[Rfam]
The record is a 144-nucleotide sequence from Halopseudomonas pachastrellae, which matches "PrrF RNA" in Rfam. Lineage of the source: Bacteria > Gammaproteobacteria > Pseudomonadales > Pseudomonadaceae > Halopseudomonas. About the family: PrrF RNA is a small RNA involved in iron homeostasis and is found exclusively in Pseudomonas species.

RNA sequence: UUGACUUGCUAAUGAUAAACGUUAUCAUUAGCAACAAGUCAUCGCGAGAUGGCUGUUGAUAACAGAUUGUCGCGAGACAAACGGUUAUCUCCUCAUCAGGCUAAUCACGGAUUUUUGCCCGCUCAUUGAGCGGGCAUUUUUUUG
Numbered sequence: 001u002u003g004a005c006u007u008g009c010u011a012a013u014g015a016u017a018a019a020c021g022u023u024a025u026c027a028u029u030a031g032c033a034a035c036a037a038g039u040c041a042u043c044g045c046g047a048g049a050u051g052g053c054u055g056u057u058g059a060u061a062a063c064a065g066a067u068u069g070u071c072g073c074g075a076g077a078c079a080a081a082c083g084g085u086u087a088u089c090u091c092c093u094c095a096u097c098a099g100g101c102u103a104a105u106c107a108c109g110g111a112u113u114u115u116u117g118c119c120c121g122c123u124c125a126u127u128g129a130g131c132g133g134g135c136a137u138u139u140u141u142u143u144g
Stems, first nucleotide, its partner, number of pairs: 035058002037054007063083001065082001067080005091100003116136008